S15-Flavobacteria ribosomal protein leader: a 68-nucleotide RNA from Patiriisocius marinistellae.
Its Rfam clan is "Ribosomal Protein S15 Leader clan".
Taxonomically the source falls in Patiriisocius (Bacteria, Bacteroidota, Flavobacteriales, Flavobacteriaceae).
It is annotated as a cis-regulatory leader.
For this family Rfam cites "Discovery of 20 novel ribosomal leader candidates in bacteria and archaea" (Eckert and Weinberg, BMC Microbiol, 2020).
Pairs were carried over by alignment from the consensus structure, which is taken from published work.
RNA sequence: UAUUUUUGCACCCGAAUUGCGAUAGACGCCAUUCAUACAUAAAAAUCAUUUACAACAAUAUUAGCAUG
Numbered sequence: 001u002a003u004u005u006u007u008g009c010a011c012c013c014g015a016a017u018u019g020c021g022a023u024a025g026a027c028g029c030c031a032u033u034c035a036u037a038c039a040u041a042a043a044a045a046u047c048a049u050u051u052a053c054a055a056c057a058a059u060a061u062u063a064g065c066a067u068g
Stems, first nucleotide, its partner, number of pairs: 014034004019029001